RNA sequence: AACAUUAUUAUAAAUUACCUCUGUAUAUCCUCGAUAAUAAGGUUCGAGAGUAUCUACCGGGAAUCCUUAAAAUUCCUGACUAUGGAGGCGGAAUCGUUACAC
Numbered sequence: 001a002a003c004a005u006u007a008u009u010a011u012a013a014a015u016u017a018c019c020u021c022u023g024u025a026u027a028u029c030c031u032c033g034a035u036a037a038u039a040a041g042g043u044u045c046g047a048g049a050g051u052a053u054c055u056a057c058c059g060g061g062a063a064u065c066c067u068u069a070a071a072a073u074u075c076c077u078g079a080c081u082a083u084g085g086a087g088g089c090g091g092a093a094u095c096g097u098u099a100c101a102c
Stems, first nucleotide, its partner, number of pairs: 018088008030048005058078007

A member of the RNA family "Purine riboswitch aptamer" from Streptohalobacillus salinus, 102 nucleotides long. It scores 78 bits against the family's covariance model. Rfam describes the family as follows. Riboswitches are metabolite binding domains within certain messenger RNAs that serve as precision sensors for their corresponding targets. Lineage of the source: Bacteria > Bacillati > Bacillota > Bacilli > Streptohalobacillus.